[Rfam]
RNA sequence: GAGCGCUCCAUGACGGGAGCCGCCGAAACGUCCGCGGACACCGGGUGGUUUCCAGACCCCGCGCGC
Numbered sequence: 001g002a003g004c005g006c007u008c009c010a011u012g013a014c015g016g017g018a019g020c021c022g023c024c025g026a027a028a029c030g031u032c033c034g035c036g037g038a039c040a041c042c043g044g045g046u047g048g049u050u051u052c053c054a055g056a057c058c059c060c061g062c063g064c065g066c
Stems, first nucleotide, its partner, number of pairs: 001066001003064003015053010030039003